[Rfam]
RNA sequence: AGUGUCAGAAGAGGAGCGUUAAUCAGGUAGCUAUUAUGAAGAGAUCAAACUCUAACGAUUAAUAGUGAGGGGAUAAAGCUAGCUAAGAUUAUUAAAGACCUUAGAUUAGUGUAACGCCGAGGUAAAUACAAUUUUGAUACUGUAUUUGCCGGUUGUUUAGGUUGAAUCCUAACAACUGUCACCUAUUGGGUGGAGAGCUUCUGGCCUU
Numbered sequence: 001a002g003u004g005u006c007a008g009a010a011g012a013g014g015a016g017c018g019u020u021a022a023u024c025a026g027g028u029a030g031c032u033a034u035u036a037u038g039a040a041g042a043g044a045u046c047a048a049a050c051u052c053u054a055a056c057g058a059u060u061a062a063u064a065g066u067g068a069g070g071g072g073a074u075a076a077a078g079c080u081a082g083c084u085a086a087g088a089u090u091a092u093u094a095a096a097g098a099c100c101u102u103a104g105a106u107u108a109g110u111g112u113a114a115c116g117c118c119g120a121g122g123u124a125a126a127u128a129c130a131a132u133u134u135u136g137a138u139a140c141u142g143u144a145u146u147u148g149c150c151g152g153u154u155g156u157u158u159a160g161g162u163u164g165a166a167u168c169c170u171a172a173c174a175a176c177u178g179u180c181a182c183c184u185a186u187u188g189g190g191u192g193g194a195g196a197g198c199u200u201c202u203g204g205c206c207u208u
Base pairs, nucleotide, nucleotide: 006203007202008201009200010199011198016117017116018115019114020113021112024109121150122149123148124147125146126145127144128143129142130141132139151177152176153175154174155173156172158171159170160169161168179193180192181191182190183189184188
The family of this 208-nucleotide sequence from Thalassotalea piscium is "Lysine riboswitch aptamer". From the family's description: Riboswitches are metabolite binding domains within certain messenger RNAs that serve as precision sensors for their corresponding targets. Allosteric rearrangement of mRNA structure is mediated by ligand binding, and this results in modulation of gene expression. This family includes riboswitches that sense lysine in a number of genes involved in lysine metabolism, including lysC. It scores 68 bits against the family's covariance model. The source organism's lineage runs through Bacteria, Pseudomonadota, Gammaproteobacteria, Alteromonadales and Thalassotalea.